[Rfam]
RNA sequence: UCUUGUAUAUUACGGGUUUCACGUCACACGAGCCUGUUUUUAUUCUACCUCUGGUUCGUUGUCGUUGAAACCUGCAUGAUGCAAGA
Number, nucleotide and partner (000 for none) at each position: 001u086002c085003u084004u083005g082006u081007a000008u000009a000010u000011u000012a000013c074014g073015g072016g071017u070018u069019u068020c067021a066022c000023g000024u000025c000026a000027c000028a000029c000030g057031a056032g055033c054034c053035u000036g000037u000038u000039u000040u000041u000042a000043u000044u000045c000046u000047a000048c000049c000050u000051c000052u000053g034054g033055u032056u031057c030058g000059u000060u000061g000062u000063c000064g000065u000066u021067g020068a019069a018070a017071c016072c015073u014074g013075c000076a000077u000078g000079a000080u000081g006082c005083a004084a003085g002086a001
This 86-nucleotide RNA sequence from Allacma fusca belongs to the Rfam family "mir-981 microRNA precursor family". The literature on the family includes a 2010 paper in BMC Genomics by Legeai et al., "Bioinformatic prediction, deep sequencing of microRNAs and expression analysis during phenotypic plasticity in the pea aphid, Acyrthosiphon pisum". It scores 70 bits against the family's covariance model. Its family is annotated with miRNA-mediated post-transcriptional gene silencing and RISC complex in the Gene Ontology.